[Rfam]
RNA: PyrR binding site
RNA sequence: UGAGCCUUUAAUUUGGUCCAGAGAGGCCGGAAAGGACGGGAUAUGGUGAUGUAGUUUAGACAUCUACAUUUGUCAUGGGAUUUUUGUACCCUUCUGCCUCUAGCAGAAGGGUUUUUUAAAU
Numbered sequence: 001u002g003a004g005c006c007u008u009u010a011a012u013u014u015g016g017u018c019c020a021g022a023g024a025g026g027c028c029g030g031a032a033a034g035g036a037c038g039g040g041a042u043a044u045g046g047u048g049a050u051g052u053a054g055u056u057u058a059g060a061c062a063u064c065u066a067c068a069u070u071u072g073u074c075a076u077g078g079g080a081u082u083u084u085u086g087u088a089c090c091c092u093u094c095u096g097c098c099u100c101u102a103g104c105a106g107a108a109g110g111g112u113u114u115u116u117u118a119a120a121u
Base pairs, nucleotide, nucleotide: 005035006034007033008032009031013030014029015028016027017026018025044075045074046073048070049069050068051067052066053065054064056062086114088112089111090110091109092108093107094106095105096104097103